The record is a 207-nucleotide RNA from Paenibacillus protaetiae, which matches "c-di-AMP riboswitch aptamer (ydaO/yuaA leader)" in Rfam. Rfam's curators write: This family represents a conserved RNA structure found upstream of the ydaO and yuaA genes in Bacillus subtilis and related genes in other bacteria.

RNA sequence: UUUCCAGUAACGCUUAAUCUCCGGAUGGAGAGCGGGGGAACCAGGCGAAUAAGCGACGGGCAUGUAUGGCAGCCUGCUGCUUAAGAGCAUUUGAAUUCUUCUUGGGGUGAAUUUCGCCAAGGUCGCCAUGAGCGGCCGGCAGUGAAUCGGGCAGCUCUCUCGCCCAAACCCGACAGCUAACCUCGUAAGCGUAUAUAGAGAGCGAUC
Numbered sequence: 001u002u003u004c005c006a007g008u009a010a011c012g013c014u015u016a017a018u019c020u021c022c023g024g025a026u027g028g029a030g031a032g033c034g035g036g037g038g039a040a041c042c043a044g045g046c047g048a049a050u051a052a053g054c055g056a057c058g059g060g061c062a063u064g065u066a067u068g069g070c071a072g073c074c075u076g077c078u079g080c081u082u083a084a085g086a087g088c089a090u091u092u093g094a095a096u097u098c099u100u101c102u103u104g105g106g107g108u109g110a111a112u113u114u115c116g117c118c119a120a121g122g123u124c125g126c127c128a129u130g131a132g133c134g135g136c137c138g139g140c141a142g143u144g145a146a147u148c149g150g151g152c153a154g155c156u157c158u159c160u161c162g163c164c165c166a167a168a169c170c171c172g173a174c175a176g177c178u179a180a181c182c183u184c185g186u187a188a189g190c191g192u193a194u195a196u197a198g199a200g201a202g203c204g205a206u207c
Stems, first nucleotide, its partner, number of pairs: 011191004018031003032186006042104004105171003113146004149165004